About this RNA
A member of the RNA family "mir-3473 microRNA precursor family" from Octodon degus, 68 nucleotides long. Its family is annotated with RISC complex, cellular response to mechanical stimulus and miRNA-mediated post-transcriptional gene silencing in the Gene Ontology. Pairs were carried over by alignment from the consensus structure, which was predicted with RNAalifold.
RNA sequence: UCUACUGAGCCAUCUCCCCAGCCCUUUUAAAAAUAUAUAUAUUGGGGCUGGGGAGAUGGCUCAGUGGA
Dot-bracket structure: .(((((((((((((((((((((((....................))))))))))))))))))))))).